Shown here is a 56-nucleotide sequence, a member of the family "chrB-b RNA".
[Rfam]
RNA sequence: UCGGGAAAGCAGCCUCCCGUCCCGCAAGGGUAGACGGUGUCCCGUCCAAGAGCUGG
Numbered sequence: 001u002c003g004g005g006a007a008a009g010c011a012g013c014c015u016c017c018c019g020u021c022c023c024g025c026a027a028g029g030g031u032a033g034a035c036g037g038u039g040u041c042c043c044g045u046c047c048a049a050g051a052g053c054u055g056g
Stems, first nucleotide, its partner, number of pairs: 002019005010055004033046005
The family's consensus secondary structure is taken from published work.